[Rfam]
RNA sequence: AACCACGGACGACCGUGGCUUCGAACGAAUAAAGCGGGACGGCCCGC
Numbered sequence: 001a002a003c004c005a006c007g008g009a010c011g012a013c014c015g016u017g018g019c020u021u022c023g024a025a026c027g028a029a030u031a032a033a034g035c036g037g038g039a040c041g042g043c044c045c046g047c
Stems, first nucleotide, its partner, number of pairs: 001020001003018006034047005
Dot-bracket structure: (.((((((....)))))).).............(((((....)))))
RNA: Guanidine-II riboswitch aptamer (mini-ykkC)
Organism: Pseudomonas sp. BAY1663